Shown here is a 62-nucleotide RNA sequence from Crassaminicella thermophila, a member of the family "RAGATH-18 RNA".
About the family: Actinobacteria, Firmicutes, Fusobacteria, Thermotogae (1 example).
The match comes from Rfam's covariance-model search (67 bits).
The base pairs follow the family's consensus structure, which is taken from published work.
The family's RNA type in Rfam is small RNA.
The source organism's lineage runs through Bacteria, Bacillota, Eubacteriales, Clostridiaceae and Crassaminicella.

RNA sequence: CCUUCAGAGAGUCAUAUCAAACAGGAGUAGCUUAGGCAAAACUGGACUCUAUGAACAAGGAA
Numbered sequence: 001c002c003u004u005c006a007g008a009g010a011g012u013c014a015u016a017u018c019a020a021a022c023a024g025g026a027g028u029a030g031c032u033u034a035g036g037c038a039a040a041a042c043u044g045g046a047c048u049c050u051a052u053g054a055a056c057a058a059g060g061a062a
Stems, first nucleotide, its partner, number of pairs: 001060004009049005022044003030037002